Rfam assigns this 144-nucleotide sequence from Algibacter luteus to the family "Flavo-1 RNA". Rfam classes the family as a small RNA. Taxonomically the source falls in Algibacter (Bacteria, Pseudomonadati, Bacteroidota, Flavobacteriaceae). The base pairs follow the family's consensus structure, which is taken from published work.
RNA sequence: AUUUAGCCCCGAUUGAAACGGCAUCCUUUUUUGUGCUAAACCCAAAAAUUAAGCUUAACUGAAAUUUAGUUUCAAAAACUAAGCACUAUGAUAUACUGCAAUAAGUUCAGCACAAGAAAGAUAUAGUGGAAAGCGGGAAAUAGC
Numbered sequence: 001a002u003u004u005a006g007c008c009c010c011g012a013u014u015g016a017a018a019c020g021g022c023a024u025c026c027u028u029u030u031u032u033g034u035g036c037u038a039a040a041c042c043c044a045a046a047a048a049u050u051a052a053g054c055u056u057a058a059c060u061g062a063a064a065u066u067u068a069g070u071u072u073c074a075a076a077a078a079c080u081a082a083g084c085a086c087u088a089u090g091a092u093a094u095a096c097u098g099c100a101a102u103a104a105g106u107u108c109a110g111c112a113c114a115a116g117a118a119a120g121a122u123a124u125a126g127u128g129g130a131a132a133g134c135g136g137g138a139a140a141u142a143g144c
Base pairs, nucleotide, nucleotide: 009136010135011134013132014131018127019126023122024121025120029117030116031115032114033113034112035111036110